[Rfam]
RNA sequence: AAAUUAGCUAUGAUAAAGAAAUAGUAAAAUGAUGAAAUCUUCACAGAGAGAAAACGGUGGUGAGAGUUUUCAAGAGGAAGUCUUUGAACCUGUCUUUUAGCUUAAAGGUAUAAAAAUCUUUACGGUAGGAACCGUUAUAUUCCCAAAAGAGAGCUAUUCAUAUAGCUAACUAGAGUGGUACCGCGGAAAUUAAACCUUUCGUCUCUAUA
Numbered sequence: 001a002a003a004u005u006a007g008c009u010a011u012g013a014u015a016a017a018g019a020a021a022u023a024g025u026a027a028a029a030u031g032a033u034g035a036a037a038u039c040u041u042c043a044c045a046g047a048g049a050g051a052a053a054a055c056g057g058u059g060g061u062g063a064g065a066g067u068u069u070u071c072a073a074g075a076g077g078a079a080g081u082c083u084u085u086g087a088a089c090c091u092g093u094c095u096u097u098u099a100g101c102u103u104a105a106a107g108g109u110a111u112a113a114a115a116a117u118c119u120u121u122a123c124g125g126u127a128g129g130a131a132c133c134g135u136u137a138u139a140u141u142c143c144c145a146a147a148a149g150a151g152a153g154c155u156a157u158u159c160a161u162a163u164a165g166c167u168a169a170c171u172a173g174a175g176u177g178g179u180a181c182c183g184c185g186g187a188a189a190u191u192a193a194a195c196c197u198u199u200c201g202u203c204u205c206u207a208u209a
Stems, first nucleotide, its partner, number of pairs: 007101002016096004027085003031081001039074003050071006104121006123134003152167006172206004183202005
T-box leader: a 209-nucleotide RNA sequence from Clostridioides difficile. It is one of the family's seed sequences.